[Rfam]
RNA sequence: UCGCUGGUGUCAGGAGAGAGCGCCGUCACACGCGCCGCCGAAGGCCGAACGCUCAGGCAAAAGGACUGGCCAAAACGA
Numbered sequence: 001u002c003g004c005u006g007g008u009g010u011c012a013g014g015a016g017a018g019a020g021c022g023c024c025g026u027c028a029c030a031c032g033c034g035c036c037g038c039c040g041a042a043g044g045c046c047g048a049a050c051g052c053u054c055a056g057g058c059a060a061a062a063g064g065a066c067u068g069g070c071c072a073a074a075a076c077g078a
Base pairs, nucleotide, nucleotide: 009070010069011068012067013066020035021034022033023032037058038057039056040054041053044052045051